Shown here is an 87-nucleotide RNA from Lysobacter antibioticus, a member of the family "c-di-GMP-I riboswitch aptamer". Its family is annotated with cyclic-di-GMP binding in the Gene Ontology.

RNA sequence: ACUCGAAAAAGGCACAACCGGCGCGAGCCGGUGUCGCAAAGCUACGGAUGCCAGGCCGUCCAGGUCAGGCAUGGCCGAGCUACCGAG
Numbered sequence: 001a002c003u004c005g006a007a008a009a010a011g012g013c014a015c016a017a018c019c020g021g022c023g024c025g026a027g028c029c030g031g032u033g034u035c036g037c038a039a040a041g042c043u044a045c046g047g048a049u050g051c052c053a054g055g056c057c058g059u060c061c062a063g064g065u066c067a068g069g070c071a072u073g074g075c076c077g078a079g080c081u082a083c084c085g086a087g
Stems, first nucleotide, its partner, number of pairs: 012037002017032006040081004045077003048072003055066001057064001
Dot-bracket structure: ...........((...((((((....))))))...))..((((.((((((....(.(......).)...)))..)))))))......
From the family's description: GEMM was predicted in a large-scale screen for bacterial structured RNA regulatory elements. Lineage of the source: Bacteria > Pseudomonadota > Gammaproteobacteria > Lysobacteraceae > Lysobacter.